[Rfam]
RNA: Purine riboswitch aptamer
Organism: Clostridium saccharoperbutylacetonicum
RNA sequence: GUAAUUUUUGAAAAUUUUACCCGUAUAUGCUUAGUAAUAAGGUCUAAGUGUCUCUACCGGACUACCGUAAAUUGUCUGACUAUGGGUGUUUAUAGGUAUUUU
Dot-bracket structure: .................((((((((...((((((.........))))))........(((((.(.......).)))))..))))))))..............